[Rfam]
RNA sequence: UGAUAUGCGAUGAAGCGGAAGGUUGCUGACAGUUGGUCAGGUAAUUUCCGUGGAGUAUGUCCGAUUUUAAACCGGGCGACUG
Numbered sequence: 001u002g003a004u005a006u007g008c009g010a011u012g013a014a015g016c017g018g019a020a021g022g023u024u025g026c027u028g029a030c031a032g033u034u035g036g037u038c039a040g041g042u043a044a045u046u047u048c049c050g051u052g053g054a055g056u057a058u059g060u061c062c063g064a065u066u067u068u069a070a071a072c073c074g075g076g077c078g079a080c081u082g
Stems, first nucleotide, its partner, number of pairs: 015051003020047003026040005059080003065076003

The record is an 82-nucleotide RNA sequence from Ruminococcus sp. CAG:57, which matches "S10-Clostridia ribosomal protein leader" in Rfam. The match comes from Rfam's covariance-model search (47 bits).